[Rfam]
RNA sequence: UGCAGGCAUGCGCGAGGGAUAAACUCAAGGUCGGUUAAUAGCCGGCAGCACGCUUCGACGUGUGGGUUCCUUGAGUCUCGGGGCCUGUUUUUUU
Numbered sequence: 001u002g003c004a005g006g007c008a009u010g011c012g013c014g015a016g017g018g019a020u021a022a023a024c025u026c027a028a029g030g031u032c033g034g035u036u037a038a039u040a041g042c043c044g045g046c047a048g049c050a051c052g053c054u055u056c057g058a059c060g061u062g063u064g065g066g067u068u069c070c071u072u073g074a075g076u077c078u079c080g081g082g083g084c085c086u087g088u089u090u091u092u093u094u
Stems, first nucleotide, its partner, number of pairs: 002088006011081001013080004024075006030046007049062004

The record is a 94-nucleotide RNA sequence, which matches "DUF3800-VII RNA" in Rfam. Rfam classes the family as a small RNA.